[Rfam]
RNA sequence: UUCUUAUCAAGAGAGGUGGAGGGACUGGCCCUAUGAAGCCCGGCAACCAUCAAACAUUAAAUUGUUUGAACGGUGCCAAUUCCAACAAAGCUUUGCUUUGGGAGAUGAGAA
Dot-bracket structure: ((((((((....(.(((...(((..[[[)))......))))((((.((.((((((........))))))..))))))...(]]].((((((...))))))..)))))))))
The record is a 111-nucleotide RNA sequence from Salirhabdus euzebyi, which matches "SAM riboswitch aptamer (S box leader)" in Rfam. Lineage of the source: Bacteria > Bacillati > Bacilli > Caryophanales > Salirhabdus. Rfam links the family to the GO term regulation of gene expression.